Rfam assigns this 85-nucleotide RNA from Schaalia dentiphila to the family "ZMP/ZTP riboswitch aptamer (pfl RNA motif)". Taxonomically the source falls in Schaalia dentiphila (Bacteria, Bacillati, Actinomycetes, Schaalia). The family's consensus secondary structure is taken from published work. Its family is annotated with regulation of purine nucleotide biosynthetic process and one-carbon metabolic process in the Gene Ontology.
[Rfam]
RNA sequence: UAAGCGUGUCGUGACUGGCGAACAGGUGGGCCACCACCGGGGAGCGACGCGUCGGCAUCGAUAGCCGCCCGCCUGGGCUAGAGGC
Numbered sequence: 001u002a003a004g005c006g007u008g009u010c011g012u013g014a015c016u017g018g019c020g021a022a023c024a025g026g027u028g029g030g031c032c033a034c035c036a037c038c039g040g041g042g043a044g045c046g047a048c049g050c051g052u053c054g055g056c057a058u059c060g061a062u063a064g065c066c067g068c069c070c071g072c073c074u075g076g077g078c079u080a081g082a083g084g085c
Stems, first nucleotide, its partner, number of pairs: 004052009015041002017073004026037004062080005